A member of the RNA family "PyrR binding site" from Metabacillus harenarius, 129 nucleotides long.
The family has 41 seed sequences and 1,498 matches in Rfam 15.1.
The source organism's lineage runs through Bacteria, Bacilli, Caryophanales, Bacillaceae and Metabacillus.

[Rfam]
RNA sequence: GGAACCUUUAAAACAGUCCCGUGAGGCUGAGAAGGAAAACGGAAGAGAUACCUUAGUAAUUGACUAUUUACUAAGCUGAACUAUGUCUACCUAUACCCUCUCACAAAUCGGUGAGAGGGUAUUUUCGUU
Numbered sequence: 001g002g003a004a005c006c007u008u009u010a011a012a013a014c015a016g017u018c019c020c021g022u023g024a025g026g027c028u029g030a031g032a033a034g035g036a037a038a039a040c041g042g043a044a045g046a047g048a049u050a051c052c053u054u055a056g057u058a059a060u061u062g063a064c065u066a067u068u069u070a071c072u073a074a075g076c077u078g079a080a081c082u083a084u085g086u087c088u089a090c091c092u093a094u095a096c097c098c099u100c101u102c103a104c105a106a107a108u109c110g111g112u113g114a115g116a117g118g119g120u121a122u123u124u125u126c127g128u129u
Stems, first nucleotide, its partner, number of pairs: 005035005014029005049078002052075008061066001093122012
Dot-bracket structure: ....(((((....(((((......))))).))))).............((.((((((((.(....).)))))))).))..............((((((((((((......)))))))))))).......